A member of the RNA family "Bacillaceae-1 RNA" from Pontibacillus yanchengensis, 67 nucleotides long. It is annotated as a small RNA. Pairs were carried over by alignment from the consensus structure, which is taken from published work. The organism belongs to Pontibacillus yanchengensis, within Bacteria.
RNA sequence: GUUGAAGGAGGUUCGAUUAAACUCGCUGCAUCAUGCAGCAACAUCGAACUGACCUACCUCCUGUAGG
Dot-bracket structure: ..........(((((((.......(((((.....)))))...)))))))...(((((.....)))))
Numbered sequence: 001g002u003u004g005a006a007g008g009a010g011g012u013u014c015g016a017u018u019a020a021a022c023u024c025g026c027u028g029c030a031u032c033a034u035g036c037a038g039c040a041a042c043a044u045c046g047a048a049c050u051g052a053c054c055u056a057c058c059u060c061c062u063g064u065a066g067g
Stems, first nucleotide, its partner, number of pairs: 011049007025039005053067005